[Rfam]
RNA sequence: GUGUGUGAAUGAAGACCACUGACGAAAGGAUCCUGCGUUCCUGUCCGUGGUUGGAUGGAACAUCACAC
Numbered sequence: 001g002u003g004u005g006u007g008a009a010u011g012a013a014g015a016c017c018a019c020u021g022a023c024g025a026a027a028g029g030a031u032c033c034u035g036c037g038u039u040c041c042u043g044u045c046c047g048u049g050g051u052u053g054g055a056u057g058g059a060a061c062a063u064c065a066c067a068c
Stems, first nucleotide, its partner, number of pairs: 001068005014052006021045003029040002

Shown here is a 68-nucleotide RNA from Ameiurus melas, a member of the family "Selenocysteine insertion sequence 1". It is annotated as a cis-regulatory element. The base pairs follow the family's consensus structure, which is taken from published work. Rfam 15.1 lists 3,793 matches to the family in 721 species.